Shown here is a 129-nucleotide RNA sequence, a member of the family "C. elegans snoRNA ceN100". Rfam classes the family as an H/ACA-box small nucleolar RNA. A reference for the family is Jia et al. (2007), "Systematic identification of non-coding RNA 2,2,7-trimethylguanosine cap structures in Caenorhabditis elegans", BMC Mol Biol.
[Rfam]
RNA sequence: GUGCGAGGUCCAGAGUCACCUUUAAGAAUAGGUAUCUUUUUGGUGCUAGGAUAACUCGAAAAUAAAAUAGGAACUUAUGCAAACGGUGCUUGCCUUAUGCUCGUCUGUUUCACCUCCGUUUCUGACAAU
Numbered sequence: 001g002u003g004c005g006a007g008g009u010c011c012a013g014a015g016u017c018a019c020c021u022u023u024a025a026g027a028a029u030a031g032g033u034a035u036c037u038u039u040u041u042g043g044u045g046c047u048a049g050g051a052u053a054a055c056u057c058g059a060a061a062a063u064a065a066a067a068u069a070g071g072a073a074c075u076u077a078u079g080c081a082a083a084c085g086g087u088g089c090u091u092g093c094c095u096u097a098u099g100c101u102c103g104u105c106u107g108u109u110u111c112a113c114c115u116c117c118g119u120u121u122c123u124g125a126c127a128a129u
Base pairs, nucleotide, nucleotide: 004058005057006056007055008052009051010050011049014047015046017045018044019043020042025037027035069123070122071121074118078112079111081110082109083108084107086105092100093099
The match comes from Rfam's covariance-model search (105 bits).